[Rfam]
RNA: MIR5565 microRNA precursor family
RNA sequence: GCACACAAAUCCACCCCAAUCCACGUGGUUUGGGAGGGAUUGUGGUCGAAUUUAGUUUAAGUUCCACCUCAAUCCCUGCUAAAUCAUGUGGAUUGGUGUGGAUUUGUUA
Numbered sequence: 001g002c003a004c005a006c007a008a009a010u011c012c013a014c015c016c017c018a019a020u021c022c023a024c025g026u027g028g029u030u031u032g033g034g035a036g037g038g039a040u041u042g043u044g045g046u047c048g049a050a051u052u053u054a055g056u057u058u059a060a061g062u063u064c065c066a067c068c069u070c071a072a073u074c075c076c077u078g079c080u081a082a083a084u085c086a087u088g089u090g091g092a093u094u095g096g097u098g099u100g101g102a103u104u105u106g107u108u109a
Stems, first nucleotide, its partner, number of pairs: 005107010016096017035077008045067002